RNA sequence: GGUAUUGUUUGCCCCACAAUAAGCCCCGGAAACUUAUUAGGUGUUCAAACAGACA
Numbered sequence: 001g002g003u004a005u006u007g008u009u010u011g012c013c014c015c016a017c018a019a020u021a022a023g024c025c026c027c028g029g030a031a032a033c034u035u036a037u038u039a040g041g042u043g044u045u046c047a048a049a050c051a052g053a054c055a
Stems, first nucleotide, its partner, number of pairs: 006051006015041001018038006
RNA: Ribosomal protein L13 leader
Organism: Loigolactobacillus backii